The record is a 320-nucleotide RNA from Thomasclavelia ramosa, which matches "Bacterial RNase P class B" in Rfam. From the family's description: Ribonuclease P (RNase P) is a ubiquitous endoribonuclease, found in archaea, bacteria and eukarya as well as chloroplasts and mitochondria. The base pairs follow the family's consensus structure, which is taken from published work. The family is grouped with related families in Rfam's "RNaseP clan". The match comes from Rfam's covariance-model search (230 bits). By type it is a ribozyme. The literature on the family includes a 1998 paper in Annu Rev Biochem by Frank and Pace, "Ribonuclease P: unity and diversity in a tRNA processing ribozyme".

RNA sequence: UCGUAGAAAACGAUUGCUACAAAAGUAGAGGAAAGUCCAGGCUUCCACAAGCUGCGAUGCUUGUAGUGUUUGUAUGUGACGAAUCAAUAAGUCACAGUAGCGUGAGCUAACGACGGGCCUAAGACCUAAGCGUAAGUAUGGUUGAUAAGCCGUAAAGUGCCACAGAGACUAUUCUAAUCGAAAGAUUAGCUGAAAAGAGGUAAACUCUGCAAGGAAGAAACCCAAAUUUGGUAGGGGAAUCGUCUAAACGGAAAUGAACGCGAAGGCGGAUGCAUGUGCAUAGAUAAAUAAUCGUUUGAAAAACAGAACUUGGCUUACAA
Dot-bracket structure: .....(..(((((((.((((....))))....[[[.[[[[[(((((((((((......)))))).....(((((((((((..........))))))(((((....)))).)((..(((....((((...((....))..)))).....))).....(((((............((((((....)))))).........)))..))))))))))))))...(((..........)))...((((((..................))))))((((....))))........)))))))............]]]]]]]].)..